A member of the RNA family "Vault RNA" from Polypterus senegalus, 95 nucleotides long. For this family Rfam cites "Evolution of Vault RNAs" (Stadler et al., Mol Biol Evol, 2009). The match comes from Rfam's covariance-model search (55 bits).
RNA sequence: ACGCUGGUUUAGCUCAGUGGUUACUUCACUUGCCUGCGCAUGAGUCGGGGUUCUUGAAUCCUGGUCUCCAACCACGGGCGCUGCCCAGUGUUUUA
Numbered sequence: 001a002c003g004c005u006g007g008u009u010u011a012g013c014u015c016a017g018u019g020g021u022u023a024c025u026u027c028a029c030u031u032g033c034c035u036g037c038g039c040a041u042g043a044g045u046c047g048g049g050g051u052u053c054u055u056g057a058a059u060c061c062u063g064g065u066c067u068c069c070a071a072c073c074a075c076g077g078g079c080g081c082u083g084c085c086c087a088g089u090g091u092u093u094u095a
Base pairs, nucleotide, nucleotide: 002090003089004088005087006086007085012079013078014077015076017075018074019073020072025058026057027056028055